Notes:
A member of the RNA family "Bacterial large subunit ribosomal RNA" from Chitinophaga flava, 232 nucleotides of a longer RNA. The family's consensus secondary structure is taken from published work. The organism belongs to Chitinophaga, within Bacteria.
RNA sequence: GAGUUACUCCUCACUGGCGAGGUUAAGGUCUUCAGUACCGGAGCCGUAGCGAAAGCGAGUUCUAACAGAGCGUAUAGUCAGUGGGGGUAGACGCGAAACUUUGUGAUCUAUCCAUGGGCAGGAUGAAGGUUGGGUAAAACCAACUGGAGGUCCGAACUCAUUAGCGUUGAAAAGCUAUGGGAUGACCUGUGGAUAGGGGUGAAAGGCCAAUCAAACUGAGAGAUAGCUCGUU
Numbered sequence: 001g002a003g004u005u006a007c008u009c010c011u012c013a014c015u016g017g018c019g020a021g022g023u024u025a026a027g028g029u030c031u032u033c034a035g036u037a038c039c040g041g042a043g044c045c046g047u048a049g050c051g052a053a054a055g056c057g058a059g060u061u062c063u064a065a066c067a068g069a070g071c072g073u074a075u076a077g078u079c080a081g082u083g084g085g086g087g088u089a090g091a092c093g094c095g096a097a098a099c100u101u102u103g104u105g106a107u108c109u110a111u112c113c114a115u116g117g118g119c120a121g122g123a124u125g126a127a128g129g130u131u132g133g134g135u136a137a138a139a140c141c142a143a144c145u146g147g148a149g150g151u152c153c154g155a156a157c158u159c160a161u162u163a164g165c166g167u168u169g170a171a172a173a174g175c176u177a178u179g180g181g182a183u184g185a186c187c188u189g190u191g192g193a194u195a196g197g198g199g200u201g202a203a204a205g206g207c208c209a210a211u212c213a214a215a216c217u218g219a220g221a222g223a224u225a226g227c228u229c230g231u232u
Stems, first nucleotide, its partner, number of pairs: 005089003009086010021045004027039003049056002059071004092230002095227001099220003103216002108196011119184001121153004128145006157181003162177004198208003
Dot-bracket structure: ....(((.((((((((((..((((..(((.......)))..))))...((....))..((((.....)))).....)))))))))))))..((.(...(((.((...((((((((((((.((((...((((((......))))))....))))...(((..((((........)))).)))..).))))))))))).(((.....)))......)).)))......).))..